[Rfam]
RNA: 6A RNA
RNA sequence: AGACUUGGUCGUAGAGCCACGACCAACUAAAAUUAAAGAACGCUCACCAAGA
Numbered sequence: 001a002g003a004c005u006u007g008g009u010c011g012u013a014g015a016g017c018c019a020c021g022a023c024c025a026a027c028u029a030a031a032a033u034u035a036a037a038g039a040a041c042g043c044u045c046a047c048c049a050a051g052a
Stems, first nucleotide, its partner, number of pairs: 006025006014045004